[Rfam]
The family of this 102-nucleotide sequence from Salisediminibacterium beveridgei is "Purine riboswitch aptamer". NCBI's taxonomy places the organism under Bacteria, Bacillota, Bacilli, Caryophanales, Salisediminibacterium. Rfam's curators write: Riboswitches are metabolite binding domains within certain messenger RNAs that serve as precision sensors for their corresponding targets. Allosteric rearrangement of mRNA structure is mediated by ligand binding, and this results in modulation of gene expression. A class of riboswitches that selectively recognises guanine and becomes saturated at concentrations as low as 5 nM. In Bacillus subtilis, this mRNA motif is located on at least five separate transcriptional units that together encode 17 genes that are mostly involved in purine transport and purine nucleotide biosynthesis. Pairs were carried over by alignment from the consensus structure, which is taken from published work.
RNA sequence: ACGGACAAACAAAACACGCUUCGUAUAUCCCCGGAAAUACGGUCCGGAAGUCUCUACCAGGUUACCGUAAAUAACCUGACUAUGAAGGUGGAUUUUUUCCCG
Numbered sequence: 001a002c003g004g005a006c007a008a009a010c011a012a013a014a015c016a017c018g019c020u021u022c023g024u025a026u027a028u029c030c031c032c033g034g035a036a037a038u039a040c041g042g043u044c045c046g047g048a049a050g051u052c053u054c055u056a057c058c059a060g061g062u063u064a065c066c067g068u069a070a071a072u073a074a075c076c077u078g079a080c081u082a083u084g085a086a087g088g089u090g091g092a093u094u095u096u097u098u099c100c101c102g
Stems, first nucleotide, its partner, number of pairs: 019087007031047005058078007